RNA sequence: CUUUAUUGAUGAUCUCUCAUUUGUGCCACUGUGUCUGGGUCAUAGAAGCCUUGUGGACCCUAAGAG
Numbered sequence: 001c002u003u004u005a006u007u008g009a010u011g012a013u014c015u016c017u018c019a020u021u022u023g024u025g026c027c028a029c030u031g032u033g034u035c036u037g038g039g040u041c042a043u044a045g046a047a048g049c050c051u052u053g054u055g056g057a058c059c060c061u062a063a064g065a066g
Base pairs, nucleotide, nucleotide: 001066002065003064004063